[Rfam]
RNA sequence: CUCUUAUCCAGAGAGGUGGAGGGACUGGCCCUGUGAAACCUCGGCAACCAGCCGCUCAUGCGCGGCCCGGUGCCAAUUCCAGCAGGACGAGAGGUGCUGUCCUGGCAGAUGAGAG
Dot-bracket structure: ((((((((....(((((...(((.[[[[)))......)))))((((.((.((((........))))..))))))...(]]]]((((((..........))))))..)))))))))